[Rfam]
RNA sequence: GGAGUAAGCUUCUAGGGUUCCGGUUCACUGAAUGCCUGGUCCAAGAGAAGCAGCCGAAACGAUCAUUCGGUCACACGGCGGGACAAAAGCCCGGGAGAA
Numbered sequence: 001g002g003a004g005u006a007a008g009c010u011u012c013u014a015g016g017g018u019u020c021c022g023g024u025u026c027a028c029u030g031a032a033u034g035c036c037u038g039g040u041c042c043a044a045g046a047g048a049a050g051c052a053g054c055c056g057a058a059a060c061g062a063u064c065a066u067u068c069g070g071u072c073a074c075a076c077g078g079c080g081g082g083a084c085a086a087a088a089g090c091c092c093g094g095g096a097g098a099a
Base pairs, nucleotide, nucleotide: 008051009050010049011048012047015042016041020039021038022036023033024032025031026030053071054070055069056068057067058066074094076097080092081091082090

The record is a 99-nucleotide RNA from Cyanobacteria bacterium FACHB-DQ100, which matches "Guanidine-I riboswitch aptamer" in Rfam. Taxonomically the source falls in Cyanobacteriota (Bacteria, Bacillati). Rfam describes the family as follows. This family represents a conserved RNA structure found upstream of the ykkC and yxkD genes in Bacillus subtilis and related genes in other bacteria. It scores 77 bits against the family's covariance model. The base pairs follow the family's consensus structure.